[Rfam]
RNA sequence: CAAGCCGGUUGACAAAUUUGGGGUUUCUUAGCGGCAUUUGCCAGUAUUAAAUGACUGCAAUGCCCUUGGAAAUCCCAAAAAUGUUCAAUACAUCU
Numbered sequence: 001c002a003a004g005c006c007g008g009u010u011g012a013c014a015a016a017u018u019u020g021g022g023g024u025u026u027c028u029u030a031g032c033g034g035c036a037u038u039u040g041c042c043a044g045u046a047u048u049a050a051a052u053g054a055c056u057g058c059a060a061u062g063c064c065c066u067u068g069g070a071a072a073u074c075c076c077a078a079a080a081a082u083g084u085u086c087a088a089u090a091c092a093u094c095u
Stems, first nucleotide, its partner, number of pairs: 008091001009088003012084003019077009030066002033064005039059003
RNA: mir-2788 microRNA precursor family